This 161-nucleotide RNA sequence from Oribacterium sp. C9 belongs to the Rfam family "Clostridiales-1 RNA". The family has 194 seed sequences and 1,172 matches in Rfam 15.1. The organism belongs to Oribacterium, within Bacteria. The base pairs follow the family's consensus structure, which is taken from published work.

RNA sequence: GUUAAACAACGAGUCAAGUAUCUUCGCCGGAUUCAUGUUUACAUGAAAUCCGGUGAAGAUAUUUGACGAGUGUACCGACAUGAGCAAGUAGACCGAUAGGUAGGAUUGCGAAUGCCGGUCAGAUUGUGAGAGUGCGUAGCACGAAGCAAUCUGAGUUUAAU
Numbered sequence: 001g002u003u004a005a006a007c008a009a010c011g012a013g014u015c016a017a018g019u020a021u022c023u024u025c026g027c028c029g030g031a032u033u034c035a036u037g038u039u040u041a042c043a044u045g046a047a048a049u050c051c052g053g054u055g056a057a058g059a060u061a062u063u064u065g066a067c068g069a070g071u072g073u074a075c076c077g078a079c080a081u082g083a084g085c086a087a088g089u090a091g092a093c094c095g096a097u098a099g100g101u102a103g104g105a106u107u108g109c110g111a112a113u114g115c116c117g118g119u120c121a122g123a124u125u126g127u128g129a130g131a132g133u134g135c136g137u138a139g140c141a142c143g144a145a146g147c148a149a150u151c152u153g154a155g156u157u158u159a160a161u
Stems, first nucleotide, its partner, number of pairs: 001161007010070001013067001017063016033046005074119004079114003084109004092101003121152007132142004